[Rfam]
This 86-nucleotide RNA from Lathyrus oleraceus belongs to the Rfam family "Small nucleolar RNA Z221/R21b". On this family, see Chen et al., Nucleic Acids Res 2003: "The high diversity of snoRNAs in plants: identification and comparative study of 120 snoRNA genes from Oryza sativa". Lineage of the source: Eukaryota > fabids > Papilionoideae > Hologalegina > Lathyrus.
RNA sequence: GGGCUAUGAUGAUUCAUAGAGAUAGUCAUGCACCACUGUGAUUUUAAGUGCUGAUAAAUUUCUCAUAUCCAAUAUUUCCUGAGCCU
Numbered sequence: 001g002g003g004c005u006a007u008g009a010u011g012a013u014u015c016a017u018a019g020a021g022a023u024a025g026u027c028a029u030g031c032a033c034c035a036c037u038g039u040g041a042u043u044u045u046a047a048g049u050g051c052u053g054a055u056a057a058a059u060u061u062c063u064c065a066u067a068u069c070c071a072a073u074a075u076u077u078c079c080u081g082a083g084c085c086u
Stems, first nucleotide, its partner, number of pairs: 001086004